Rfam assigns this 62-nucleotide RNA from Clostridium manihotivorum to the family "RAGATH-18 RNA". Rfam classes the family as a small RNA. The base pairs follow the family's consensus structure, which is taken from published work.

RNA sequence: CCCUUGGAGUGUUAUAGCAAAGAAAGUAGCUUUUAGCAAAAUCGGACAAGUUGAACAGGGAA
Numbered sequence: 001c002c003c004u005u006g007g008a009g010u011g012u013u014a015u016a017g018c019a020a021a022g023a024a025a026g027u028a029g030c031u032u033u034u035a036g037c038a039a040a041a042u043c044g045g046a047c048a049a050g051u052u053g054a055a056c057a058g059g060g061a062a
Stems, first nucleotide, its partner, number of pairs: 001060004010048004022043002029037003